[Rfam]
RNA sequence: CUCGCCGGGCUCGUAGGUAGAAGCUGAGUUUUGUUUUGCUUCCGCCCUGCAAGCCCGGUAGCU
Numbered sequence: 001c002u003c004g005c006c007g008g009g010c011u012c013g014u015a016g017g018u019a020g021a022a023g024c025u026g027a028g029u030u031u032u033g034u035u036u037u038g039c040u041u042c043c044g045c046c047c048u049g050c051a052a053g054c055c056c057g058g059u060a061g062c063u
Stems, first nucleotide, its partner, number of pairs: 004059008013050005018044001020042005